Record summary:
Shown here is a 53-nucleotide RNA sequence, a member of the family "Mu-gpT-DE RNA".

RNA sequence: CCCUGACAGCCGCACCCUGUGGCUGACACUAGCCACGACAGGAGUAACUCAUG
Numbered sequence: 001c002c003c004u005g006a007c008a009g010c011c012g013c014a015c016c017c018u019g020u021g022g023c024u025g026a027c028a029c030u031a032g033c034c035a036c037g038a039c040a041g042g043a044g045u046a047a048c049u050c051a052u053g
Base pairs, nucleotide, nucleotide: 002042003041004040005039007025008024009023010022011021